This 58-nucleotide RNA from Hibiscus syriacus belongs to the Rfam family "Plastid-ccsA-ndhD-2 3UTR RNA". It is one of the family's seed sequences. From the family's description: Plastid ccsA-ndhD-2 is a non-coding RNA (ncRNA) recognised in plastids. It was found in the three prime untranslated region (3UTR) of ccsA and ndhD genes, its 3UTR location suggests a role in transcript maturation. Rfam 15.1 lists 875 matches to the family in 517 species. For this family Rfam cites "Surprising features of plastid ndhD transcripts: addition of non-encoded nucleotides and polysome association of mRNAs with an unedited start codon" (Zandueta-Criado and Bock, Nucleic Acids Res, 2004).

RNA sequence: GCUUUUGUUAGAACCUUUUGAAUCAAGUAGUGGAGUGAUUCAAAAGGUUCUUGCCAGC
Numbered sequence: 001g002c003u004u005u006u007g008u009u010a011g012a013a014c015c016u017u018u019u020g021a022a023u024c025a026a027g028u029a030g031u032g033g034a035g036u037g038a039u040u041c042a043a044a045a046g047g048u049u050c051u052u053g054c055c056a057g058c
Base pairs, nucleotide, nucleotide: 007054008053010051011050012049013048014047015046016045017044018043019042020041021040022039023038024037025036